Shown here is a 103-nucleotide RNA from Zea mays, a member of the family "Small nucleolar RNA Z118/Z121/Z120". By type it is a C/D-box small nucleolar RNA.
RNA sequence: UAUUUUCCAUGAUGACUACUAUUAAGACGGUAUCUAAAAGGGGUAGCUUUUAAUUGUACCUCUUCUGAUUGUACCGAGACUGAAUCAGUGUUUUCAGAACGUU
Numbered sequence: 001u002a003u004u005u006u007c008c009a010u011g012a013u014g015a016c017u018a019c020u021a022u023u024a025a026g027a028c029g030g031u032a033u034c035u036a037a038a039a040g041g042g043g044u045a046g047c048u049u050u051u052a053a054u055u056g057u058a059c060c061u062c063u064u065c066u067g068a069u070u071g072u073a074c075c076g077a078g079a080c081u082g083a084a085u086c087a088g089u090g091u092u093u094u095c096a097g098a099a100c101g102u103u
Base pairs, nucleotide, nucleotide: 002102003101005099006098007097038064039063040062041061042060043059
Rfam 15.1 lists 435 matches to the family in 31 species.